[Rfam]
RNA sequence: AAAUGUACCCUAUCCCCUAUACAGUGCACUACUAUGGGCCCUGGUCAAAAGUAGUGCACUAUAUAGGGAAUAGGGUGCCAUUU
Dot-bracket structure: (((.((((((.((.(((((...((((((((......................))))))))...))))).)).))))))..)))
Numbered sequence: 001a002a003a004u005g006u007a008c009c010c011u012a013u014c015c016c017c018u019a020u021a022c023a024g025u026g027c028a029c030u031a032c033u034a035u036g037g038g039c040c041c042u043g044g045u046c047a048a049a050a051g052u053a054g055u056g057c058a059c060u061a062u063a064u065a066g067g068g069a070a071u072a073g074g075g076u077g078c079c080a081u082u083u
Stems, first nucleotide, its partner, number of pairs: 001083003005078006012071002015068005023060008
Source information:
This 83-nucleotide sequence from Coregonus sp. 'balchen' belongs to the Rfam family "mir-130 microRNA precursor family". A reference for the family is Lagos-Quintana et al. (2002), "Identification of tissue-specific microRNAs from mouse", Curr Biol. Lineage of the source: Eukaryota > Bilateria > Gnathostomata > Salmoniformes > Coregonus. Rfam links the family to the GO terms miRNA-mediated post-transcriptional gene silencing and RISC complex.